[Rfam]
RNA sequence: CAAGCUGGCCGGGCGGCCGCGGUAUUGUCUGGUGGCCCAGGCUCCUGGAGCACCAGACAGGCUGAGGAACGUCCGGGCUCCACAGAGCAGGGCGGUGGCUAACGGCCACCCGGGGUGACCCGCGGGACAGUGCCACAGAAAGAAGACCGCCGUCCGUGUACCGGGCGGUAAGGGUGAAAGGGUGGGGUAAGAGCCCACCAGCGUGGCGGGUGACCGCUGCGGCUAGGUAAACCCCGCCUGGAGCAAGACCGCACAGCUGACGUCUGAGGGCUGCUCGCCUGAGUCAGCGGGUAGGUCGCGUGAGGCCGUCGGCAACGGCGGUCCAAGAUGAAUGGUCGCCGCCACCCAGUCCGGUAACGGUGGGUGGUAACAGAACCCGGCGUACAGGCCAGCUUGUCCG
Numbered sequence: 001c002a003a004g005c006u007g008g009c010c011g012g013g014c015g016g017c018c019g020c021g022g023u024a025u026u027g028u029c030u031g032g033u034g035g036c037c038c039a040g041g042c043u044c045c046u047g048g049a050g051c052a053c054c055a056g057a058c059a060g061g062c063u064g065a066g067g068a069a070c071g072u073c074c075g076g077g078c079u080c081c082a083c084a085g086a087g088c089a090g091g092g093c094g095g096u097g098g099c100u101a102a103c104g105g106c107c108a109c110c111c112g113g114g115g116u117g118a119c120c121c122g123c124g125g126g127a128c129a130g131u132g133c134c135a136c137a138g139a140a141a142g143a144a145g146a147c148c149g150c151c152g153u154c155c156g157u158g159u160a161c162c163g164g165g166c167g168g169u170a171a172g173g174g175u176g177a178a179a180g181g182g183u184g185g186g187g188u189a190a191g192a193g194c195c196c197a198c199c200a201g202c203g204u205g206g207c208g209g210g211u212g213a214c215c216g217c218u219g220c221g222g223c224u225a226g227g228u229a230a231a232c233c234c235c236g237c238c239u240g241g242a243g244c245a246a247g248a249c250c251g252c253a254c255a256g257c258u259g260a261c262g263u264c265u266g267a268g269g270g271c272u273g274c275u276c277g278c279c280u281g282a283g284u285c286a287g288c289g290g291g292u293a294g295g296u297c298g299c300g301u302g303a304g305g306c307c308g309u310c311g312g313c314a315a316c317g318g319c320g321g322u323c324c325a326a327g328a329u330g331a332a333u334g335g336u337c338g339c340c341g342c343c344a345c346c347c348a349g350u351c352c353g354g355u356a357a358c359g360g361u362g363g364g365u366g367g368u369a370a371c372a373g374a375a376c377c378c379g380g381c382g383u384a385c386a387g388g389c390c391a392g393c394u395u396g397u398c399c400g
Stems, first nucleotide, its partner, number of pairs: 001396010011385001012340007020064004025059001027058008069383003073380005078243004085276004090239005095109005110124001111122004125234002130232002132228003147173002149169008181199006201223001202221008247297004256288006268280004304323008

The family of this 400-nucleotide RNA from Actinomyces sp. 2119 is "Bacterial RNase P class A".
The family's RNA type in Rfam is ribozyme.